The family of this 54-nucleotide sequence from Albula goreensis is "UnaL2 LINE 3' element".
From the family's description: The eel long interspersed element (LINE) UnaL2 and its partner short interspersed element (SINE) share a conserved 3' tail containing a stem-loop that is critical for their retrotransposition. Presumably, the first step of retrotransposition is the recognition of their 3' tails by UnaL2-encoded reverse transcriptase.
A search with the family's covariance model found it, with a score of 60 bits.
Nucleotides: 054
Stems, first nucleotide, its partner, number of pairs: 013043001014041003020036006
Number, partner (000 for none) and nucleotide at each position: 001000a002000g003000a004000a005000a006000u007000a008000c009000a010000c011000u012000u013043u014041g015040c016039a017000g018000g019000u020036c021035g022034c023033u024032c025031u026000g027000g028000a029000u030000a031025a032024g033023a034022g035021c036020g037000u038000c039016u040015g041014c042000u043013a044000a045000a046000u047000g048000c049000c050000u051000a052000a053000a054000a